RNA sequence: GCUGCCCGCACAUGAUGAGAACUGUGUUGGUAGGGACAUCUGAGAGGGUGAUGAAUGCCAACGGCUCUGAGCCGGGCUGC
Numbered sequence: 001g002c003u004g005c006c007c008g009c010a011c012a013u014g015a016u017g018a019g020a021a022c023u024g025u026g027u028u029g030g031u032a033g034g035g036a037c038a039u040c041u042g043a044g045a046g047g048g049u050g051a052u053g054a055a056u057g058c059c060a061a062c063g064g065c066u067c068u069g070a071g072c073c074g075g076g077c078u079g080c
Stems, first nucleotide, its partner, number of pairs: 001080002004077002